The family of this 86-nucleotide RNA from Medicago truncatula is "MIR2617 microRNA precursor family". NCBI's taxonomy places the organism under Eukaryota, Streptophytina, Spermatophyta, Fabales, Medicago. The family's consensus secondary structure was predicted with RNAalifold.
RNA sequence: AAGAAGUGUAACAUUCCGUUUAAGGUGUUUUACUCUGAUUAAUUUAUGAAAUUAAUUGAUUUUGGGUAACGGGGUGUUACAAUAGA
Number, nucleotide and partner (000 for none) at each position: 001a000002a000003g000004a000005a083006g000007u081008g080009u079010a078011a077012c076013a075014u074015u073016c072017c071018g070019u069020u068021u000022a000023a000024g000025g000026u000027g000028u000029u000030u000031u000032a000033c000034u000035c000036u000037g000038a000039u000040u000041a000042a000043u000044u000045u000046a000047u000048g000049a000050a000051a000052u000053u000054a000055a000056u000057u000058g000059a000060u000061u000062u000063u000064g000065g000066g000067u000068a020069a019070c018071g017072g016073g015074g014075u013076g012077u011078u010079a009080c008081a007082a000083u005084a000085g000086a000